[Rfam]
RNA sequence: GGCAGAUGAGGUCUUUUCUUACAAUGGUCUGCAGAUGCCACUGUGGGCAGUGCCGAAAAUGCCACACAUUCAGCUGAUGCCGGUGG
Numbered sequence: 001g002g003c004a005g006a007u008g009a010g011g012u013c014u015u016u017u018c019u020u021a022c023a024a025u026g027g028u029c030u031g032c033a034g035a036u037g038c039c040a041c042u043g044u045g046g047g048c049a050g051u052g053c054c055g056a057a058a059a060u061g062c063c064a065c066a067c068a069u070u071c072a073g074c075u076g077a078u079g080c081c082g083g084u085g086g
Base pairs, nucleotide, nucleotide: 001081002080003079004078
RNA: Small nucleolar RNA SNORD35
Organism: Marmota monax